Annotation:
Shown here is a 97-nucleotide RNA sequence from Balaeniceps rex, a member of the family "Small nucleolar SNORD12/SNORD106". By type it is a C/D-box small nucleolar RNA. The family's consensus secondary structure was predicted with RNAalifold. Clan: SNORD12 clan. For this family Rfam cites "Identification of 13 novel human modification guide RNAs" (Vitali et al., Nucleic Acids Res, 2003). The organism belongs to Balaeniceps, within Eukaryota.

RNA sequence: GCAUCUGUCAUGAUGACUUCAGACGUUUUUUCCCCACCAGAUUGGCAAUGCUGAUGCAAACUUCUGUUUUAGCCAUAUUGACUGAUUCCACAGAUGC
Numbered sequence: 001g002c003a004u005c006u007g008u009c010a011u012g013a014u015g016a017c018u019u020c021a022g023a024c025g026u027u028u029u030u031u032c033c034c035c036a037c038c039a040g041a042u043u044g045g046c047a048a049u050g051c052u053g054a055u056g057c058a059a060a061c062u063u064c065u066g067u068u069u070u071a072g073c074c075a076u077a078u079u080g081a082c083u084g085a086u087u088c089c090a091c092a093g094a095u096g097c
Stems, first nucleotide, its partner, number of pairs: 001097008